[Rfam]
RNA sequence: GCGAGAGACAUGACGGCGGCCAAGUCCAUCAGUCUCCCGGCGUUUCGGGGAGGAAACGCCCUCAUUAUCAGAGCGACAGCUCAAAUUAGCCCGCUGCGAUUAUCCCCCGCAGCGGGCUAAAUUUUUGC
Numbered sequence: 001g002c003g004a005g006a007g008a009c010a011u012g013a014c015g016g017c018g019g020c021c022a023a024g025u026c027c028a029u030c031a032g033u034c035u036c037c038c039g040g041c042g043u044u045u046c047g048g049g050g051a052g053g054a055a056a057c058g059c060c061c062u063c064a065u066u067a068u069c070a071g072a073g074c075g076a077c078a079g080c081u082c083a084a085a086u087u088a089g090c091c092c093g094c095u096g097c098g099a100u101u102a103u104c105c106c107c108c109g110c111a112g113c114g115g116g117c118u119a120a121a122u123u124u125u126u127g128c
Stems, first nucleotide, its partner, number of pairs: 001038001003037001005036005015030002018027002039060008069127002071082004086120013
Description:
The family of this 128-nucleotide RNA sequence from Phenylobacterium deserti is "Caulobacter sRNA CrfA". It scores 57 bits against the family's covariance model. The family's RNA type in Rfam is small RNA.